[Rfam]
RNA sequence: AGGUCAUUUCAAAGAGAGCUUACGGGACCAAAACCAGGAGCUCUUAACGCUGUGACCUAAGAUCAAAGUUCUCCAUAGGAUGUAAUAGACACUCUGUAGUGUUACGUUUUCCUGAGGAGAUACAAGA
Numbered sequence: 001a002g003g004u005c006a007u008u009u010c011a012a013a014g015a016g017a018g019c020u021u022a023c024g025g026g027a028c029c030a031a032a033a034c035c036a037g038g039a040g041c042u043c044u045u046a047a048c049g050c051u052g053u054g055a056c057c058u059a060a061g062a063u064c065a066a067a068g069u070u071c072u073c074c075a076u077a078g079g080a081u082g083u084a085a086u087a088g089a090c091a092c093u094c095u096g097u098a099g100u101g102u103u104a105c106g107u108u109u110u111c112c113u114g115a116g117g118a119g120a121u122a123c124a125a126g127a
Base pairs, nucleotide, nucleotide: 002057003056004055005054006053007052014045015044016043017042018041019040020039021038023037026035070120071119072118073117074116077113078112079111080110086104087103088102090101091100092099093098